[Rfam]
Shown here is a 54-nucleotide RNA sequence from Aerococcus urinaehominis, a member of the family "Ribosomal protein L13 leader". The literature on the family includes a 1994 paper in Prog Nucleic Acid Res Mol Biol by Zengel and Lindahl, "Diverse mechanisms for regulating ribosomal protein synthesis in Escherichia coli".
RNA sequence: GGUAUUGUUUGCCCCAUGAUUAGCCCCGGAAACCUAAUUAUGAUCGAACAAUCU
Numbered sequence: 001g002g003u004a005u006u007g008u009u010u011g012c013c014c015c016a017u018g019a020u021u022a023g024c025c026c027c028g029g030a031a032a033c034c035u036a037a038u039u040a041u042g043a044u045c046g047a048a049c050a051a052u053c054u
Stems, first nucleotide, its partner, number of pairs: 006050006015042009
From the family's description: This family is a putative r-protein leader autoregulatory structure found in B. subtilis and other low-GC Gram-positive bacteria. A search with the family's covariance model found it, with a score of 50 bits.